The family of this 70-nucleotide RNA sequence is "tRNA". The sequence is in the family's curated seed alignment.
RNA sequence: CACUGUAAAGCUAACUUAGCAUUAACCUUUUAAGUUAAAGAUUAAGAGAACCAACACCUCUUUACAGUGA
Numbered sequence: 001c002a003c004u005g006u007a008a009a010g011c012u013a014a015c016u017u018a019g020c021a022u023u024a025a026c027c028u029u030u031u032a033a034g035u036u037a038a039a040g041a042u043u044a045a046g047a048g049a050a051c052c053a054a055c056a057c058c059u060c061u062u063u064a065c066a067g068u069g070a
Stems, first nucleotide, its partner, number of pairs: 001069007010020004022038005044062005